[Rfam]
Description: SAM riboswitch aptamer (S box leader): a 116-nucleotide sequence from Mucilaginibacter gilvus. A search with the family's covariance model found it, with a score of 84 bits. The source organism's lineage runs through Bacteria, Pseudomonadati, Sphingobacteriales, Sphingobacteriaceae and Mucilaginibacter. Rfam describes the family as follows. The SAM riboswitch is found upstream of a number of genes which code for proteins involved in methionine or cysteine biosynthesis in Gram-positive bacteria. The SAM riboswitch acts at the level of transcription termination control. The predicted structure consists of a complex stem-loop region followed by a single stem loop terminator region.

Nucleotides: 116
Base pairs, nucleotide, nucleotide: 003114004113005112006111007110008109013042014041015040016039017038021031022030023029026087027086028085043080044079045078046077048076049075051072052071053070054069055068056067084108089105090104091103092102093101094100
Number, partner (000 for none) and nucleotide at each position: 001000u002000a003114c004113u005112u006111a007110u008109c009000c010000a011000g012000a013042a014041a015040g016039a017038c018000a019000g020000a021031g022030g023029g024000a025000a026087a027086g028085g029023c030022c031021c032000u033000a034000u035000g036000a037000u038017g039016u040015c041014u042013u043080a044079g045078c046077a047000a048076c049075c050000u051072g052071u053070a054069c055068c056067g057000g058000c059000u060000u061000u062000a063000a064000g065000c066000a067056u068055g069054g070053u071052g072051u073000a074000a075049g076048g077046u078045g079044c080043u081000a082000a083000u084108u085028c086027c087026u088000g089105c090104u091103u092102c093101g094100u095000g096000u097000u098000u099000a100094a101093c102092g103091a104090g105089g106000a107000c108084a109008g110007a111006u112005a113004a114003g115000c116000u